[Rfam]
RNA sequence: GGCUGACCUGCAGCAGUUCUUCACUGGCAAGCUUUAUGUCCAUGUGUCUUGCUAAAGCUGCCAGCUGAAGAACUGCUGUGGCUGC
Numbered sequence: 001g002g003c004u005g006a007c008c009u010g011c012a013g014c015a016g017u018u019c020u021u022c023a024c025u026g027g028c029a030a031g032c033u034u035u036a037u038g039u040c041c042a043u044g045u046g047u048c049u050u051g052c053u054a055a056a057g058c059u060g061c062c063a064g065c066u067g068a069a070g071a072a073c074u075g076c077u078g079u080g081g082c083u084g085c
Stems, first nucleotide, its partner, number of pairs: 005082001007081001010079003017072006026062003030059007
mir-22 microRNA precursor family: an 85-nucleotide sequence from Conger conger.
A search with the family's covariance model found it, with a score of 81 bits.
The family has 48 seed sequences and 884 matches in Rfam 15.1.
The organism belongs to Conger, within Eukaryota.